[Rfam]
RNA sequence: AGUCCUGACCUGCCAAAUCCGCCGCGCCGUCCGUGGCGGAGCCGGGGACCCAUUCUCCCCCGGGGCGAAUCGGCGCUUUCCGCCGUAGGGCCGCGCUUCCAGGCCCGAGCCCGUCAGCUAACCCGGCCGGCCUCGUGGAAGGUCAAU
Numbered sequence: 001a002g003u004c005c006u007g008a009c010c011u012g013c014c015a016a017a018u019c020c021g022c023c024g025c026g027c028c029g030u031c032c033g034u035g036g037c038g039g040a041g042c043c044g045g046g047g048a049c050c051c052a053u054u055c056u057c058c059c060c061c062g063g064g065g066c067g068a069a070u071c072g073g074c075g076c077u078u079u080c081c082g083c084c085g086u087a088g089g090g091c092c093g094c095g096c097u098u099c100c101a102g103g104c105c106c107g108a109g110c111c112c113g114u115c116a117g118c119u120a121a122c123c124c125g126g127c128c129g130g131c132c133u134c135g136u137g138g139a140a141g142g143u144c145a146a147u
Stems, first nucleotide, its partner, number of pairs: 012131003018040009041127006051062001063112003071085004088106004
c-di-AMP riboswitch aptamer (ydaO/yuaA leader): a 147-nucleotide RNA sequence from Nonomuraea soli.